[Rfam]
RNA: FMN riboswitch aptamer (RFN element)
Organism: Neobacillus bataviensis
RNA sequence: AUCUAUCUUCGGGGCAGGGUGAAAUUCCCGAUCGGCGGUAUUGGAGCAAUGCUCCUGAGCCCGCGAGCCUUUUAUAGGCAGGAUUUGGUGUGAUUCCAAAGCCGACAGUAUAGUCUGGAUGGGAGAAGAUGGAG
Numbered sequence: 001a002u003c004u005a006u007c008u009u010c011g012g013g014g015c016a017g018g019g020u021g022a023a024a025u026u027c028c029c030g031a032u033c034g035g036c037g038g039u040a041u042u043g044g045a046g047c048a049a050u051g052c053u054c055c056u057g058a059g060c061c062c063g064c065g066a067g068c069c070u071u072u073u074a075u076a077g078g079c080a081g082g083a084u085u086u087g088g089u090g091u092g093a094u095u096c097c098a099a100a101g102c103c104g105a106c107a108g109u110a111u112a113g114u115c116u117g118g119a120u121g122g123g124a125g126a127a128g129a130u131g132g133a134g
Stems, first nucleotide, its partner, number of pairs: 003132008017029003031114002033104002035064004059102002069078001084100005106117003